[Rfam]
Manganese Mn2+ riboswitch aptamer (yybP-ykoY): a 200-nucleotide RNA sequence from Oceanibaculum indicum. A search with the family's covariance model found it, with a score of 47 bits. Rfam 15.1 lists 1,126 matches to the family in 1,062 species.

RNA sequence: CCGCUCCGUCAUUGGGGAGUAGCCGUCCCCCUUCGCACCAGUUGCGAUUGAGGGGAGACCGCAUCAACAGACUUGGAGCCGUCGCUGGUUCCAUGGUGCGGGAAGCCAGUUUCCGGUUUGGCGAGACCUUUGGCAUCGACGGCCGUCAUUCGGGUCAGACGGCGGGCUGUCGAUGUCACAGGUAUGUCCGCCGUCCGGCC
Dot-bracket structure: ..........................(((.......................))).(.((((((((.......((((((((....)))))))))))))))).....).....((((..............................................................................))))..